[Rfam]
RNA sequence: CAGCAAAAAGCCAGAACGGCUUGAUUCCUUGUUGAAUCAAUUGGCAUAUUGUUGCGAUGUUGUGUUUGCAAACUCGUAUUUCGAGUUAGGUAGGUUUCUACCACCGUUUCAUUUCAAUGAAUGAAGUGAAACAUACUUCCUGUAUUUAUUUUGACCUGUCUGUCAAAUUUUUUAGCACCGCCUAUAUGGCGGUGUUUUUUUAU
Numbered sequence: 001c002a003g004c005a006a007a008a009a010g011c012c013a014g015a016a017c018g019g020c021u022u023g024a025u026u027c028c029u030u031g032u033u034g035a036a037u038c039a040a041u042u043g044g045c046a047u048a049u050u051g052u053u054g055c056g057a058u059g060u061u062g063u064g065u066u067u068g069c070a071a072a073c074u075c076g077u078a079u080u081u082c083g084a085g086u087u088a089g090g091u092a093g094g095u096u097u098c099u100a101c102c103a104c105c106g107u108u109u110c111a112u113u114u115c116a117a118u119g120a121a122u123g124a125a126g127u128g129a130a131a132c133a134u135a136c137u138u139c140c141u142g143u144a145u146u147u148a149u150u151u152u153g154a155c156c157u158g159u160c161u162g163u164c165a166a167a168u169u170u171u172u173u174a175g176c177a178c179c180g181c182c183u184a185u186a187u188g189g190c191g192g193u194g195u196u197u198u199u200u201u202a203u
Base pairs, nucleotide, nucleotide: 010045011044012043015042016041021040022039023038024037025036026035027034072086073085074084075083076082089102090101091100092099093098144169146167147166174196175195176194177193178192179191180190181189
RNA: GcvB RNA